[Rfam]
Shown here is a 61-nucleotide RNA from Tupaia belangeri, a member of the family "U7 small nuclear RNA".
RNA sequence: GAGUGUUAUAGCUUUUUGAAAUUCAUCUAGCAGGUUUUCCAAUUUUUAUUGGAAACCCCCC
Numbered sequence: 001g002a003g004u005g006u007u008a009u010a011g012c013u014u015u016u017u018g019a020a021a022u023u024c025a026u027c028u029a030g031c032a033g034g035u036u037u038u039c040c041a042a043u044u045u046u047u048a049u050u051g052g053a054a055a056c057c058c059c060c061c
Base pairs, nucleotide, nucleotide: 033058034057036055037054038053039052040051041050042049043048